[Rfam]
RNA: Small nucleolar RNA SNORA15
RNA sequence: GCAUGCCUGAGUACUGUGUUUUUCUUAUCCGUAGUUUACACAGCCAGACAACAGGCAAAUGCCUGUGCUGAUAUGGGGAGUUGUUUCAUAGCUCAUCAUUUUCUAAAGUAGGUACAAAU
Numbered sequence: 001g002c003a004u005g006c007c008u009g010a011g012u013a014c015u016g017u018g019u020u021u022u023u024c025u026u027a028u029c030c031g032u033a034g035u036u037u038a039c040a041c042a043g044c045c046a047g048a049c050a051a052c053a054g055g056c057a058a059a060u061g062c063c064u065g066u067g068c069u070g071a072u073a074u075g076g077g078g079a080g081u082u083g084u085u086u087c088a089u090a091g092c093u094c095a096u097c098a099u100u101u102u103c104u105a106a107a108g109u110a111g112g113u114a115c116a117a118a119u
Base pairs, nucleotide, nucleotide: 001056002055004053005052014043015042016041017040018039019038062112063111064110066105067103071101073099074098075097076096078094079093080092081091082090083089